[Rfam]
RNA: SAM riboswitch aptamer (S box leader)
Organism: Agrilutibacter solisilvae
RNA sequence: CAUCCAUCGAGACCGGCUGAGGGAAAGGCCCUUUGACGCCGGGGCAACCUACCGGACGCGCUCCUCCCCCACGGAGCGAUGUCCGGGAAGGUGCCAAUUCCUGCGGUGCGCCUGCGCGCGCCGGAAGAUGGUUG
Numbered sequence: 001c002a003u004c005c006a007u008c009g010a011g012a013c014c015g016g017c018u019g020a021g022g023g024a025a026a027g028g029c030c031c032u033u034u035g036a037c038g039c040c041g042g043g044g045c046a047a048c049c050u051a052c053c054g055g056a057c058g059c060g061c062u063c064c065u066c067c068c069c070c071a072c073g074g075a076g077c078g079a080u081g082u083c084c085g086g087g088a089a090g091g092u093g094c095c096a097a098u099u100c101c102u103g104c105g106g107u108g109c110g111c112c113u114g115c116g117c118g119c120g121c122c123g124g125a126a127g128a129u130g131g132u133u134g
Base pairs, nucleotide, nucleotide: 001134002133004131005130006129007128008127013042014041015040016039017038021031022030023029026102027101028100043095044094045093046092048091049090050087052085099126104123105122106121107120108119109118